[Rfam]
RNA sequence: GCACCAGGCCGGGCCCCUCUGGCAGUUCCAAUGAACUGUGAUGUCGGACUGGAAGU
Numbered sequence: 001g002c003a004c005c006a007g008g009c010c011g012g013g014c015c016c017c018u019c020u021g022g023c024a025g026u027u028c029c030a031a032u033g034a035a036c037u038g039u040g041a042u043g044u045c046g047g048a049c050u051g052g053a054a055g056u
Base pairs, nucleotide, nucleotide: 006050007049009047010046011045012044022039023038024037025036026035027034028033
The family of this 56-nucleotide sequence from Mesorhizobium zhangyense is "terC RNA".
By type it is a cis-regulatory element.
It scores 56 bits against the family's covariance model.